[Rfam]
RNA sequence: CCACCAGACCGGGCCCCUCUGGCAGUUCGUCUUGAACUGUGAUGUCGGACUGGAAUC
Numbered sequence: 001c002c003a004c005c006a007g008a009c010c011g012g013g014c015c016c017c018u019c020u021g022g023c024a025g026u027u028c029g030u031c032u033u034g035a036a037c038u039g040u041g042a043u044g045u046c047g048g049a050c051u052g053g054a055a056u057c
Base pairs, nucleotide, nucleotide: 006051007050009048010047011046012045022040023039024038025037026036027035028034
Description
Rfam assigns this 57-nucleotide sequence from Neorhizobium sp. S3-V5DH to the family "terC RNA". The match comes from Rfam's covariance-model search (59 bits). NCBI's taxonomy places the organism under Bacteria, Pseudomonadati, Pseudomonadota, Alphaproteobacteria, Neorhizobium.